[Rfam]
Rfam assigns this 135-nucleotide RNA from Ailuropoda melanoleuca to the family "Small nucleolar RNA SNORA5". Rfam links the family to the GO terms RNA processing and nucleolus. Rfam describes the family as follows. ACA5 is a member of the H/ACA class of snoRNA that guide the sites of modification of uridines to pseudouridines. Its Rfam clan is "SNORA5 clan".
RNA sequence: CGCAGCUGUGUCAAAUUCAGUGCCUGCCCACCCCGUGGCUGGCACUGGCCUGAAAGGCUGCCACAAAAACACUGUGACCCAUGGGCCCUGAUCCCCCAUGCUGGGCCUCAGGGAUAAAUUUGGUCACAGACACCU
Numbered sequence: 001c002g003c004a005g006c007u008g009u010g011u012c013a014a015a016u017u018c019a020g021u022g023c024c025u026g027c028c029c030a031c032c033c034c035g036u037g038g039c040u041g042g043c044a045c046u047g048g049c050c051u052g053a054a055a056g057g058c059u060g061c062c063a064c065a066a067a068a069a070c071a072c073u074g075u076g077a078c079c080c081a082u083g084g085g086c087c088c089u090g091a092u093c094c095c096c097c098a099u100g101c102u103g104g105g106c107c108u109c110a111g112g113g114a115u116a117a118a119u120u121u122g123g124u125c126a127c128a129g130a131c132a133c134c135u
Stems, first nucleotide, its partner, number of pairs: 002061004018047007026039003074127006086113005

By type it is an H/ACA-box small nucleolar RNA. The family has 6 seed sequences and 2,226 matches in Rfam 15.1. The family's consensus secondary structure was predicted with RNAfold.